RNA sequence: CCCGGGCGGGCCGAAGCCCAUAAUGAAUAAAAAAGUCAUUCCUCUUUGACGGCCAAUAGCGAUAUUGGCCUCUUUUUU
Numbered sequence: 001c002c003c004g005g006g007c008g009g010g011c012c013g014a015a016g017c018c019c020a021u022a023a024u025g026a027a028u029a030a031a032a033a034a035g036u037c038a039u040u041c042c043u044c045u046u047u048g049a050c051g052g053c054c055a056a057u058a059g060c061g062a063u064a065u066u067g068g069c070c071u072c073u074u075u076u077u078u
Stems, first nucleotide, its partner, number of pairs: 005018003024031001051070008
A member of the RNA family "sroB RNA" from Chimaeribacter arupi, 78 nucleotides long. The organism belongs to Chimaeribacter, within Bacteria. The match comes from Rfam's covariance-model search (52 bits). Pairs were carried over by alignment from the consensus structure, which was predicted with LocARNA.